RNA sequence: ACCUGCCCUAGCAAGGGGUUGUGGUCUCACCCGUGACCCAGUCGUUGAUAGCGCAGGGAGAGGAGCUCGGAAAGCGUUUCCCGUGUUCAACGGGUUCAAUCCCGUCGCUCCCAAACCCUGCAGCCUUCAGACA
Numbered sequence: 001a002c003c004u005g006c007c008c009u010a011g012c013a014a015g016g017g018g019u020u021g022u023g024g025u026c027u028c029a030c031c032c033g034u035g036a037c038c039c040a041g042u043c044g045u046u047g048a049u050a051g052c053g054c055a056g057g058g059a060g061a062g063g064a065g066c067u068c069g070g071a072a073a074g075c076g077u078u079u080c081c082c083g084u085g086u087u088c089a090a091c092g093g094g095u096u097c098a099a100u101c102c103c104g105u106c107g108c109u110c111c112c113a114a115a116c117c118c119u120g121c122a123g124c125c126u127u128c129a130g131a132c133a
Stems, first nucleotide, its partner, number of pairs: 002057005008051002014046002017043005023038004068130001070128003074124002085116003092108001094106001
Dot-bracket structure: .(((((.((....((.(((((.((((........))))))))).))...)).)))))..........(.(((.((.........(((....(.(...........).).....)))......)).))).)...

Source information
Shown here is a 133-nucleotide RNA from Cathartes aura, a member of the family "Small nucleolar RNA SNORA71". Rfam links the family to the GO terms RNA processing and nucleolus. The family's RNA type in Rfam is H/ACA-box small nucleolar RNA. The base pairs follow the family's consensus structure, which was predicted with PFOLD. The members of this family belong to the H/ACA class of snoRNAs which bind a number of proteins (including dyskerin, Gar1p and Nop10p) to form snoRNP complexes. This class of snoRNAs are thought to guide the sites of modification of uridines to pseudouridines by forming direct base pairing interactions with substrate RNAs. This family includes U71 (SNORA71), ACA39 (SNORA39) and ACA60 (SNORA60). U71 and ACA60 are predicted to guide the pseudouridylation of U406 and U1004 in 18S rRNA respectively. There is currently no target RNA identified for ACA39. Rfam 15.1 lists 1,805 matches to the family in 606 species. It scores 78 bits against the family's covariance model.